[Rfam]
RNA sequence: AAAUAUAAUAACUCUUUAAGCCAUUUUUCUAACAGGAUUUCUGAUUUUGGUUGGAAAUUCCAU
Numbered sequence: 001a002a003a004u005a006u007a008a009u010a011a012c013u014c015u016u017u018a019a020g021c022c023a024u025u026u027u028u029c030u031a032a033c034a035g036g037a038u039u040u041c042u043g044a045u046u047u048u049g050g051u052u053g054g055a056a057a058u059u060c061c062a063u
Stems, first nucleotide, its partner, number of pairs: 035060011
U7 small nuclear RNA: a 63-nucleotide RNA from Mus spicilegus. A reference for the family is Spycher et al. (1994), "3' end processing of mouse histone pre-mRNA: evidence for additional base-pairing between U7 snRNA and pre-mRNA", Nucleic Acids Res. The match comes from Rfam's covariance-model search (35 bits). Taxonomically the source falls in Mus (Eukaryota, Chordata, Craniata, Euteleostomi). The base pairs follow the family's consensus structure, which was predicted with PFOLD.